[Rfam]
This 66-nucleotide RNA belongs to the Rfam family "L31-Actinobacteria ribosomal protein leader".
Rfam classes the family as a cis-regulatory leader.
It is one of the family's seed sequences.
The family is grouped with related families in Rfam's "Ribosomal Protein L31 Leader clan".

RNA sequence: GCGGUACCGGUUCACGUCACGACGGCCAGCCCCGACCGGGGCCCGGCUAGCGGCGACCCGGCGACC
Numbered sequence: 001g002c003g004g005u006a007c008c009g010g011u012u013c014a015c016g017u018c019a020c021g022a023c024g025g026c027c028a029g030c031c032c033c034g035a036c037c038g039g040g041g042c043c044c045g046g047c048u049a050g051c052g053g054c055g056a057c058c059c060g061g062c063g064a065c066c
Stems, first nucleotide, its partner, number of pairs: 003066003007061004015055004020050001022048001